[Rfam]
RNA sequence: GCGGAUGGCCGGAUGACCGCCGGUAUCGGGAGGGCGACUUCCCGUGCGGGAGGAAAGUCCGGACUCCACAAGGCAACGGUGCCGGGUAACGCCCGGCCGGGGAAACCCGAGGGAAAGCGCCACAGAGAACAAACCGCCCGGGCAAAUCGCGCAAGCGACGGACCCCGGGUGAGGCUGAAACGGUGGGGUAAGAGCCCACCGCGGGCCCGGCAACGGGACCGGCACGGCAAGCCCCACCGGGAGCAAUGCCGAAUAGGGACCUCGCGCCCCGUCGUGGGCAGGGCCGCCUUGGCCCGGAGGUCCGGGUUGGCAGCUGAAGGCCCGUGGCGACACGGGUCUUAGAGGAAUGGUCAUCGAACCGGGGGCGACCCCGGGGCACAGAAUCCGGCUUACAGGCCGUCCGCGCAA
Numbered sequence: 001g002c003g004g005a006u007g008g009c010c011g012g013a014u015g016a017c018c019g020c021c022g023g024u025a026u027c028g029g030g031a032g033g034g035c036g037a038c039u040u041c042c043c044g045u046g047c048g049g050g051a052g053g054a055a056a057g058u059c060c061g062g063a064c065u066c067c068a069c070a071a072g073g074c075a076a077c078g079g080u081g082c083c084g085g086g087u088a089a090c091g092c093c094c095g096g097c098c099g100g101g102g103a104a105a106c107c108c109g110a111g112g113g114a115a116a117g118c119g120c121c122a123c124a125g126a127g128a129a130c131a132a133a134c135c136g137c138c139c140g141g142g143c144a145a146a147u148c149g150c151g152c153a154a155g156c157g158a159c160g161g162a163c164c165c166c167g168g169g170u171g172a173g174g175c176u177g178a179a180a181c182g183g184u185g186g187g188g189u190a191a192g193a194g195c196c197c198a199c200c201g202c203g204g205g206c207c208c209g210g211c212a213a214c215g216g217g218a219c220c221g222g223c224a225c226g227g228c229a230a231g232c233c234c235c236a237c238c239g240g241g242a243g244c245a246a247u248g249c250c251g252a253a254u255a256g257g258g259a260c261c262u263c264g265c266g267c268c269c270c271g272u273c274g275u276g277g278g279c280a281g282g283g284c285c286g287c288c289u290u291g292g293c294c295c296g297g298a299g300g301u302c303c304g305g306g307u308u309g310g311c312a313g314c315u316g317a318a319g320g321c322c323c324g325u326g327g328c329g330a331c332a333c334g335g336g337u338c339u340u341a342g343a344g345g346a347a348u349g350g351u352c353a354u355c356g357a358a359c360c361g362g363g364g365g366c367g368a369c370c371c372c373g374g375g376g377c378a379c380a381g382a383a384u385c386c387g388g389c390u391u392a393c394a395g396g397c398c399g400u401c402c403g404c405g406c407a408a
Stems, first nucleotide, its partner, number of pairs: 001404010011393001012355007020050002023047004028042004055391003059388005064243004072290002077239005082096005097111001098109004112234002117232002119228003134174002136170007182200006201223001202221003206217004247312004257303006281295005319338008
RNA: Bacterial RNase P class A
Organism: Maritimibacter harenae